[Rfam]
RNA sequence: UUGCCCUCUUAAGUCUGAUGGUGUCUUAAGUGGCCAGUACAGAGGGGUAGAAAAAUUCUCUCUUAAACCCAGAGGUGAGAUUGCAACUCUACUUUGGAUCCUGUUGGGAGAAACACAU
Numbered sequence: 001u002u003g004c005c006c007u008c009u010u011a012a013g014u015c016u017g018a019u020g021g022u023g024u025c026u027u028a029a030g031u032g033g034c035c036a037g038u039a040c041a042g043a044g045g046g047g048u049a050g051a052a053a054a055a056u057u058c059u060c061u062c063u064u065a066a067a068c069c070c071a072g073a074g075g076u077g078a079g080a081u082u083g084c085a086a087c088u089c090u091a092c093u094u095u096g097g098a099u100c101c102u103g104u105u106g107g108g109a110g111a112a113a114c115a116c117a118u
Stems, first nucleotide, its partner, number of pairs: 002049006009042002015037003019030001056112001058110005069097006077089003081086001
RNA: Small nucleolar RNA SNORA26